[Rfam]
RNA sequence: ACACGUGAAAGGAGGUGGUCCAAAGUUGUGUAGUUCUUGGACUCGUGAGGUGACUGUCCGCUAGUCGCCGUCCUCUGGACUCUGAGUAGUCGAGGCCGCACGGCGGCUCGGCGAAUCCCAGACAGUUACCCGACCCCCGGGGUCCGGCCUAGUCCAGCCGGUCCACGCGAACGCGUGGAACCCCGGGGGUCGUCCUAU
Numbered sequence: 001a002c003a004c005g006u007g008a009a010a011g012g013a014g015g016u017g018g019u020c021c022a023a024a025g026u027u028g029u030g031u032a033g034u035u036c037u038u039g040g041a042c043u044c045g046u047g048a049g050g051u052g053a054c055u056g057u058c059c060g061c062u063a064g065u066c067g068c069c070g071u072c073c074u075c076u077g078g079a080c081u082c083u084g085a086g087u088a089g090u091c092g093a094g095g096c097c098g099c100a101c102g103g104c105g106g107c108u109c110g111g112c113g114a115a116u117c118c119c120a121g122a123c124a125g126u127u128a129c130c131c132g133a134c135c136c137c138c139g140g141g142g143u144c145c146g147g148c149c150u151a152g153u154c155c156a157g158c159c160g161g162u163c164c165a166c167g168c169g170a171a172c173g174c175g176u177g178g179a180a181c182c183c184c185g186g187g188g189g190u191c192g193u194c195c196u197a198u
Base pairs, nucleotide, nucleotide: 014058015057016056017055018054019053059113060112061111062110063108064107065106067104068103069102070101072095073094074093131192132191133190134189135188136187137186138185139184140183141182142181143180144161145160146159147158148157
Notes
Rfam assigns this 198-nucleotide RNA sequence from Planosporangium flavigriseum to the family "Actinobacteria sRNA Ms_IGR-5". Taxonomically the source falls in Planosporangium (Bacteria, Bacillati, Actinomycetes, Micromonosporaceae). It scores 112 bits against the family's covariance model.